The family of this 109-nucleotide sequence from Sphingomonas tagetis is "TPP riboswitch aptamer (THI element)". A search with the family's covariance model found it, with a score of 63 bits. Pairs were carried over by alignment from the consensus structure, which is taken from published work. Vitamin B(1) in its active form thiamin pyrophosphate (TPP) is an essential coenzyme that is synthesised by coupling of pyrimidine and thiazole moieties in bacteria. The previously detected thiamin-regulatory element, thi box was extended, resulting in a new, highly conserved RNA secondary structure, the THI element, which is widely distributed in eubacteria and also occurs in some archaea. Analysis of operon structures identified a large number of new candidate thiamin-regulated genes, mostly transporters, in various prokaryotic organisms. The THI element is a riboswitch that directly binds to TPP to regulate gene expression through a variety of mechanisms in archaea, bacteria and eukaryotes. through a variety of mechanisms in archaea, bacteria and eukaryotes.
[Rfam]
RNA sequence: ACGCCAUCCCCGGGGGAGCGCUGACGGCGCUUGAGAGGGUGGCACGAGCCACCGACCCGCUGAACCUGAUCCGGUUGACACCGGCGUAGGGAGUGGGCGGCUUCUCACC
Numbered sequence: 001a002c003g004c005c006a007u008c009c010c011c012g013g014g015g016g017a018g019c020g021c022u023g024a025c026g027g028c029g030c031u032u033g034a035g036a037g038g039g040u041g042g043c044a045c046g047a048g049c050c051a052c053c054g055a056c057c058c059g060c061u062g063a064a065c066c067u068g069a070u071c072c073g074g075u076u077g078a079c080a081c082c083g084g085c086g087u088a089g090g091g092a093g094u095g096g097g098c099g100g101c102u103u104c105u106c107a108c109c
Stems, first nucleotide, its partner, number of pairs: 007097003011059004017031005038053005065090004071084004